[Rfam]
RNA: Small nucleolar RNA SNORD73
RNA sequence: AAUGAAUGAUGACAAAAUGUUUUGGUCCCAAAUGAUACAAUGAUUAUACUGUUACAUUUCUGAUAUU
Numbered sequence: 001a002a003u004g005a006a007u008g009a010u011g012a013c014a015a016a017a018u019g020u021u022u023u024g025g026u027c028c029c030a031a032a033u034g035a036u037a038c039a040a041u042g043a044u045u046a047u048a049c050u051g052u053u054a055c056a057u058u059u060c061u062g063a064u065a066u067u
Stems, first nucleotide, its partner, number of pairs: 001067004